[Rfam]
Rfam assigns this 168-nucleotide RNA from Firmicutes bacterium CAG:95 to the family "Clostridiales-1 RNA". The match comes from Rfam's covariance-model search (122 bits). Pairs were carried over by alignment from the consensus structure, which is taken from published work.

RNA sequence: UAAUACCAGAGCCAAAAGGUCUAAGCCCACAUGAGCUUGCUCAUAAGUGGGUGAAAGACCUUAGGAUCCGCCCCGAUAUGAGUAUAGAAGUGGAAUGAUAAUCCCCCAAUAUGCGAAUAUUGGGUAGGAUUGUGGGCGUGCGUAGCACGAAGCAAUCCGUAGGUAUCA
Numbered sequence: 001u002a003a004u005a006c007c008a009g010a011g012c013c014a015a016a017a018g019g020u021c022u023a024a025g026c027c028c029a030c031a032u033g034a035g036c037u038u039g040c041u042c043a044u045a046a047g048u049g050g051g052u053g054a055a056a057g058a059c060c061u062u063a064g065g066a067u068c069c070g071c072c073c074c075g076a077u078a079u080g081a082g083u084a085u086a087g088a089a090g091u092g093g094a095a096u097g098a099u100a101a102u103c104c105c106c107c108a109a110u111a112u113g114c115g116a117a118u119a120u121u122g123g124g125u126a127g128g129a130u131u132g133u134g135g136g137c138g139u140g141c142g143u144a145g146c147a148c149g150a151a152g153c154a155a156u157c158c159g160u161a162g163g164u165a166u167c168a
Base pairs, nucleotide, nucleotide: 001168003166004165005164006163007162010067012065013064016062017061018060019059020058021057022056026051027050028049029048030047031044032043033042034041035040072124073123074122075121076120077119078118079117082114083113084112085111090107092105093104095102096101127158128157129156130155131154132153133152138148139147140146141145
Record summary: The family's RNA type in Rfam is small RNA.